[Rfam]
RNA: U5 spliceosomal RNA
RNA sequence: AGCUGCGUGAUGAGCACAGAGCGAACUAUUCUUUCGCCUUUUACUAAAGAAUACCGUGUGCUCGUCACAUUAAGCAGCAUACUUCAAUUUUUGGAGGAUGCUUUCCUACCAAGGACG
Numbered sequence: 001a002g003c004u005g006c007g008u009g010a011u012g013a014g015c016a017c018a019g020a021g022c023g024a025a026c027u028a029u030u031c032u033u034u035c036g037c038c039u040u041u042u043a044c045u046a047a048a049g050a051a052u053a054c055c056g057u058g059u060g061c062u063c064g065u066c067a068c069a070u071u072a073a074g075c076a077g078c079a080u081a082c083u084u085c086a087a088u089u090u091u092u093g094g095a096g097g098a099u100g101c102u103u104u105c106c107u108a109c110c111a112a113g114g115a116c117g
Stems, first nucleotide, its partner, number of pairs: 003077004008067011027053008101117001103115003